The record is a 136-nucleotide sequence from Mus spicilegus, which matches "Small nucleolar RNA SNORA5" in Rfam. Taxonomically the source falls in Mus (Eukaryota, Eumetazoa, Bilateria, Euarchontoglires). Pairs were carried over by alignment from the consensus structure, which was predicted with RNAfold. Rfam describes the family as follows. ACA5 is a member of the H/ACA class of snoRNA that guide the sites of modification of uridines to pseudouridines. Its family is annotated with RNA processing and nucleolus in the Gene Ontology. The family has 6 seed sequences and 2,226 matches in Rfam 15.1.
[Rfam]
RNA sequence: UGCAGUCAAGUCAAAUUCAGUUCCUAUCCUCUCAUGAUGGGAGCUGGCCCAAAUGGCUGCCACAGCAAGCUCUGCUGCUCAUGGGCCCUACGUCCCCAGCCCUGGGACCUAGGGAUAAGUUUGGUUGCAGACAUUG
Numbered sequence: 001u002g003c004a005g006u007c008a009a010g011u012c013a014a015a016u017u018c019a020g021u022u023c024c025u026a027u028c029c030u031c032u033c034a035u036g037a038u039g040g041g042a043g044c045u046g047g048c049c050c051a052a053a054u055g056g057c058u059g060c061c062a063c064a065g066c067a068a069g070c071u072c073u074g075c076u077g078c079u080c081a082u083g084g085g086c087c088c089u090a091c092g093u094c095c096c097c098a099g100c101c102c103u104g105g106g107a108c109c110u111a112g113g114g115a116u117a118a119g120u121u122u123g124g125u126u127g128c129a130g131a132c133a134u135u136g
Stems, first nucleotide, its partner, number of pairs: 002060004018046011074128002077125003086114005
Dot-bracket structure: .((((............(((((((((((.......)))))))))))..........)))).............((.(((......(((((...................)))))........))).))........